[Rfam]
Shown here is a 44-nucleotide sequence from Aristolochia tagala, a member of the family "Plastid-rpl16 group II-D1 intron". Lineage of the source: Eukaryota > Embryophyta > Tracheophyta > Euphyllophyta > Aristolochia. It is one of the family's seed sequences. Gene Ontology term of the family: Group II intron splicing.
RNA sequence: GGAGCCUUGAGUCAAUAGAGACUGAGAAGAUUGACUCUGGAACG
Numbered sequence: 001g002g003a004g005c006c007u008u009g010a011g012u013c014a015a016u017a018g019a020g021a022c023u024g025a026g027a028a029g030a031u032u033g034a035c036u037c038u039g040g041a042a043c044g
Stems, first nucleotide, its partner, number of pairs: 006040002009037008